[Rfam]
RNA: Burkholderiales-2 RNA
RNA sequence: GUAGAGCCACAACCGUGCUUGUGGGUGCGAUUUAAGCCGGACAAACUCUCCACAUAGGAGGGGAGAGCAACAUCGGC
Numbered sequence: 001g002u003a004g005a006g007c008c009a010c011a012a013c014c015g016u017g018c019u020u021g022u023g024g025g026u027g028c029g030a031u032u033u034a035a036g037c038c039g040g041a042c043a044a045a046c047u048c049u050c051c052a053c054a055u056a057g058g059a060g061g062g063g064a065g066a067g068c069a070a071c072a073u074c075g076g077c
Base pairs, nucleotide, nucleotide: 001028002027003026008023009022010021011020012019036077037076038075039074040073046065047064048063049062050061051060